Source information: The family of this 94-nucleotide RNA from Medicago truncatula is "MIR2587 microRNA precursor family". It scores 91 bits against the family's covariance model.
RNA sequence: GUGUCAUGGUCAUUGUUGACCGCUCAUACGACCUCUGCAAUUGUAUUGCAGCUCAUGCGGGGGUCAUAUAACGGUCAAUAGAGACCAUUGACAU
Numbered sequence: 001g002u003g004u005c006a007u008g009g010u011c012a013u014u015g016u017u018g019a020c021c022g023c024u025c026a027u028a029c030g031a032c033c034u035c036u037g038c039a040a041u042u043g044u045a046u047u048g049c050a051g052c053u054c055a056u057g058c059g060g061g062g063g064u065c066a067u068a069u070a071a072c073g074g075u076c077a078a079u080a081g082a083g084a085c086c087a088u089u090g091a092c093a094u
Stems, first nucleotide, its partner, number of pairs: 001094006008086004013081010024070001026069003030065010043052001